The family of this 586-nucleotide part of an RNA from Kocuria coralli is "Bacterial large subunit ribosomal RNA". The family is grouped with related families in Rfam's "LSU clan". The organism belongs to Kocuria, within Bacteria.

Nucleotides: 586
Base pairs, nucleotide, nucleotide: 001582002581003580004579005578006577007576008575010574011573012572014569015568022403023402024401025400027398028395029394030393031392032391034200035199036198037197041192042191044189045188046187047186050153051152052151053150054149055148056147057146058145060143061142062141063140064139065138067136077135078134079133080132081131084118085117086116093112094111095110096109097108098107099106100105157180158179159178161177162176163175164174165173166172203215204214205213206212216238217237218236219235220234221233239384241341242340247299248298249297250296251295252294253279254278256274257273258272259271260270261269280289281288304327305326306325307324310321311320312319329338330337331336352378353377354376355375356374357373358372360371361370412453413452414451416450417447418446420444421443422442423441427437428436464539465537466536467535468534469531470528471527472526473525474524477502478501480497481496482495483494484493485492504518505517506516507515508514545563546562547561548560549558550557551556
Number, partner (000 for none) and nucleotide at each position: 001582c002581g003580c004579g005578c006577a007576g008575c009000a010574g011573g012572a013000c014569g015568g016000a017000a018000a019000g020000a021000c022403c023402c024401c025400g026000u027398g028395a029394c030393c031392u032391u033000u034200a035199c036198u037197a038000u039000a040000g041192u042191u043000u044189g045188g046187u047186a048000u049000u050153g051152g052151u053150g054149u055148u056147u057146g058145g059000u060143g061142c062141g063140g064139c065138u066000u067136g068000u069000g070000u071000a072000g073000g074000a075000u076000a077135g078134g079133u080132g081131g082000g083000a084118g085117a086116c087000u088000g089000u090000g091000a092000g093112a094111c095110u096109g097108u098107c099106a100105c101000g102000c103000u104000a105100g106099u107098g108097a109096u110095g111094g112093u113000g114000g115000a116086g117085u118084c119000g120000u121000u122000g123000u124000u125000g126000a127000a128000a129000u130000a131081c132080c133079a134078c135077u136067c137000u138065g139064g140063u141062c142061g143060c144000u145058c146057u147056g148055g149054a150053u151052g152051u153050c154000u155000a156000a157180c158179u159178u160000c161177g162176g163175c164174c165173c166172g167000u168000g169000a170000u171000c172166c173165g174164g175163g176162u177161c178159a179158g180157g181000g182000a183000c184000a185000g186047u187046g188045c189044c190000u191042g192041a193000u194000g195000g196000g197037u198036a199035g200034u201000u202000u203215a204214a205213c206212u207000g208000g209000g210000g211000c212206g213205g214204u215203u216238g217237c218236c219235u220234c221233c222000u223000a224000a225000a226000g227000a228000g229000u230000a231000a232000c233221g234220g235219a236218g237217g238216c239384g240000c241341c242340c243000a244000a245000a246000g247299g248298u249297u250296c251295c252294c253279u254278c255000a256274g257273c258272c259271u260270g261269g262000u263000u264000g265000g266000c267000a268000a269261u270260c271259a272258g273257g274256u275000g276000u277000u278254g279253a280289g281288u282000g283000u284000a285000a286000g287000u288281g289280c290000a291000c292000a293000a294252g295251g296250g297249a298248g299247c300000u301000u302000g303000a304327c305326u306325g307324u308000g309000a310321g311320a312319g313000u314000g315000a316000c317000g318000g319312c320311u321310c322000g323000a324307g325306c326305a327304g328000g329338g330337a331336c332000g333000a334000a335000a336331g337330u338329c339000g340242g341241g342000a343000c344000u345000a346000g347000u348000g349000a350000u351000c352378c353377g354376g355375c356374g357373g358372u359000a360371c361370a362000u363000u364000g365000u366000g367000g368000a369000a370361u371360g372358g373357c374356c375355g376354u377353c378352g379000c380000u381000c382000a383000a384239c385000g386000g387000a388000u389000a390000a391032a392031a393030g394029g395028u396000a397000c398027c399000u400025c401024g402023g403022g404000g405000a406000u407000a408000a409000c410000a411000g412453g413452c414451u415000g416450a417447u418446c419000u420444u421443g422442c423441c424000c425000a426000a427437g428436a429000g430000u431000c432000c433000a434000u435000a436428u437427c438000g439000a440000c441423g442422g443421c444420a445000u446418g447417g448000u449000u450416u451414g452413g453412c454000a455000c456000c457000u458000c459000g460000a461000u462000g463000u464539c465537g466536g467535c468534u469531c470528g471527u472526c473525g474524c475000a476000u477502c478501c479000u480497g481496g482495g483494g484493c485492u486000g487000g488000a489000g490000u491000u492485g493484g494483u495482c496481c497480c498000a499000a500000g501478g502477g503000u504518u505517g506516g507515g508514c509000u510000g511000u512000u513000c514508g515507c516506c517505c518504a519000u520000u521000a522000a523000a524474g525473c526472g527471g528470c529000a530000c531469g532000c533000g534468a535467g536466c537465u538000g539464g540000g541000u542000u543000c544000a545563g546562a547561a548560c549558g550557u551556c552000g553000u554000g555000a556551g557550a558549c559000a560548g561547u562546u563545c564000g565000g566000u567000c568015c569014c570000u571000a572012u573011c574010c575008g576007c577006u578005g579004c580003g581002c582001g583000c584000g585000u586000u
It scores 2683 bits against the family's covariance model.